Rfam assigns this 218-nucleotide RNA from Drosophila sechellia to the family "R2 RNA element". For this family Rfam cites "Reverse transcription of R2Bm RNA is primed by a nick at the chromosomal target site: a mechanism for non-LTR retrotransposition" (Luan et al., Cell, 1993). The family's consensus secondary structure is taken from published work. Rfam classes the family as a cis-regulatory element. This family represents the 3' UTR region of the R2 retrotransposable element. This family is known to interact with the R2-encoded reverse transcriptase in a reaction known as target primed reverse transcription (TPRT). The source organism's lineage runs through Eukaryota, Pancrustacea, Insecta, Drosophilidae and Sophophora.
RNA sequence: UCAAAACAUUUGCUCCCGCUGGAGCGGGGGCAUAACAUCAAUAAAGGCAUAAACAUCGCACAUAUUUAUGGUGAAUAUAUAAAUUGGCUAUGAGGAUGGUUUUAGUACGUAGGCGUUGCGGAACUUCGGUUCAGAUAGAGCAAUGAAUCGUGCAUGCUAGGAAACUGAAGUGUUGACAGACCUAGUAUCUUUCGAUAGAUUUCCAUACCUCCGCGAUC
Number, nucleotide and partner (000 for none) at each position: 001u000002c000003a000004a000005a000006a000007c000008a000009u000010u000011u000012g000013c000014u000015c000016c000017c000018g000019c000020u049021g048022g000023a000024g000025c047026g000027g000028g000029g000030g000031c000032a000033u000034a000035a000036c000037a000038u000039c000040a000041a000042u000043a000044a000045a000046g000047g025048c021049a020050u000051a000052a000053a000054c000055a217056u216057c215058g214059c213060a000061c000062a000063u000064a000065u000066u000067u000068a000069u000070g000071g000072u000073g000074a000075a000076u000077a000078u000079a000080u000081a000082a000083a000084u000085u000086g000087g000088c000089u000090a000091u000092g211093a210094g209095g208096a000097u205098g204099g203100u000101u000102u000103u000104a000105g153106u152107a151108c150109g149110u000111a000112g000113g000114c145115g144116u143117u142118g141119c140120g000121g132122a131123a130124c129125u000126u000127c000128g000129g124130u123131u122132c121133a000134g000135a000136u000137a000138g000139a000140g119141c118142a117143a116144u115145g114146a000147a000148u000149c109150g108151u107152g106153c105154a000155u187156g186157c185158u184159a183160g182161g000162a000163a000164a000165c000166u000167g000168a000169a000170g000171u000172g000173u000174u000175g000176a000177c000178a000179g000180a000181c000182c160183u159184a158185g157186u156187a155188u000189c000190u000191u000192u000193c000194g000195a000196u000197a000198g000199a000200u000201u000202u000203c099204c098205a097206u000207a000208c095209c094210u093211c092212c000213g059214c058215g057216a056217u055218c000